This 66-nucleotide sequence from Halobacterium sp. DL1 belongs to the Rfam family "eL15-Euryarchaeota ribosomal protein leader". The family's RNA type in Rfam is cis-regulatory leader. The source organism's lineage runs through Archaea, Methanobacteriota, Halobacteria, Halobacteriales and Halobacterium. Rfam's curators put it in the seed alignment. On this family, see Eckert and Weinberg, BMC Microbiol 2020: "Discovery of 20 novel ribosomal leader candidates in bacteria and archaea".
RNA sequence: CCUGACCACAGUCAGGACGGGAUGUGAUCCGUGAGGCGCUGCGUGCCUCGCGGAUUGAACCACGCA
Numbered sequence: 001c002c003u004g005a006c007c008a009c010a011g012u013c014a015g016g017a018c019g020g021g022a023u024g025u026g027a028u029c030c031g032u033g034a035g036g037c038g039c040u041g042c043g044u045g046c047c048u049c050g051c052g053g054a055u056u057g058a059a060c061c062a063c064g065c066a
Base pairs, nucleotide, nucleotide: 001016002015003014004013005012019061020060026056027055028054029053030052031051032050033049034048035047036046037045038044